[Rfam]
RNA sequence: CGUCUCCUCCAUGUCUCCUCCAGAUAUGGAUUCAGCCCGUCUCUUUAGGCGGGCUUUUUCUU
Dot-bracket structure: .......((((((((.......))))))))...((((((((......)))))))).......
A member of the RNA family "Betaproteobacteria toxic small RNA" from Paraburkholderia acidisoli, 62 nucleotides long. Lineage of the source: Bacteria > Pseudomonadati > Pseudomonadota > Burkholderiaceae > Paraburkholderia. The match comes from Rfam's covariance-model search (71 bits). About the family: Overexpression in amino aid rich medium attenuates growth, suggesting role in repressing amino acid intake and metabolism. A reference for the family is Kimelman et al. (2012), "A vast collection of microbial genes that are toxic to bacteria", Genome Res.